[Rfam]
Nucleotides: 091
Base pairs, nucleotide, nucleotide: 001091002090003089004088005087006086007085010025011024013022015020027043028042029041030040031039046065047064048063049062050061069083070082071081072080
Number, partner (000 for none) and nucleotide at each position: 001091g002090g003089a004088g005087a006086g007085a008000u009000g010025g011024u012000g013022a014000g015020c016000g017000g018000u019000u020015g021000a022013u023000a024011g025010c026000u027043c028042c029041g030040g031039u032000c033000u034000u035000g036000a037000a038000a039031a040030c041029c042028g043027g044000u045000a046065u047064a048063g049062u050061u051000c052000u053000u054000u055000g056000u057000u058000c059000a060000g061050a062049a063048c064047u065046a066000u067000c068000g069083a070082g071081g072080g073000u074000u075000c076000g077000a078000a079000u080072c081071c082070c083069u084000c085007u086006c087005u088004c089003u090002c091001c